[Rfam]
RNA sequence: CUUCAGAUACAUCCUCGCGACUAAUGACAACCUUUUCCUGCUGCCGGAAAGUGCUCUCAUUAGCCGCGCGAAUAGCUGUACCGAAGAAUCGUUAUUAUUGCGGCAACAGCUCAGUGUGCCGCAUUCAGAAGAAAAGGGGCCGUCGGCCCCUUUCC
Numbered sequence: 001c002u003u004c005a006g007a008u009a010c011a012u013c014c015u016c017g018c019g020a021c022u023a024a025u026g027a028c029a030a031c032c033u034u035u036u037c038c039u040g041c042u043g044c045c046g047g048a049a050a051g052u053g054c055u056c057u058c059a060u061u062a063g064c065c066g067c068g069c070g071a072a073u074a075g076c077u078g079u080a081c082c083g084a085a086g087a088a089u090c091g092u093u094a095u096u097a098u099u100g101c102g103g104c105a106a107c108a109g110c111u112c113a114g115u116g117u118g119c120c121g122c123a124u125u126c127a128g129a130a131g132a133a134a135a136g137g138g139g140c141c142g143u144c145g146g147c148c149c150c151u152u153u154c155c
Stems, first nucleotide, its partner, number of pairs: 001086004006082001009079003016070004021063007093113001136150006

This 155-nucleotide RNA sequence from Morganella morganii belongs to the Rfam family "SraG RNA". Taxonomically the source falls in Morganella morganii subsp. morganii (Bacteria, Pseudomonadota, Gammaproteobacteria, Enterobacterales). The family's consensus secondary structure was predicted with PFOLD. Rfam describes the family as follows. This RNA was discovered in E. coli during a large scale screen. Evidence was found for specific cleavage of this RNA. Its family is annotated with mRNA binding and sRNA-mediated gene silencing in the Gene Ontology.